[Rfam]
RNA sequence: UAUGCAAAUAAUUUAAUUGCCUAUAUAAUGCCAAGAUGAGGUUGGUCAGUUUCUACCCGAACCCGUAAAAGUUCGGACUAUAAGCAACGGAACUAAAAGC
Numbered sequence: 001u002a003u004g005c006a007a008a009u010a011a012u013u014u015a016a017u018u019g020c021c022u023a024u025a026u027a028a029u030g031c032c033a034a035g036a037u038g039a040g041g042u043u044g045g046u047c048a049g050u051u052u053c054u055a056c057c058c059g060a061a062c063c064c065g066u067a068a069a070a071g072u073u074c075g076g077a078c079u080a081u082a083a084g085c086a087a088c089g090g091a092a093c094u095a096a097a098a099g100c
Stems, first nucleotide, its partner, number of pairs: 018086003022082004029048002031045004057076006
Purine riboswitch aptamer: a 100-nucleotide sequence from Acetilactobacillus jinshanensis. It scores 60 bits against the family's covariance model. The base pairs follow the family's consensus structure, which is taken from published work. Taxonomically the source falls in Acetilactobacillus (Bacteria, Bacillota, Bacilli, Lactobacillaceae).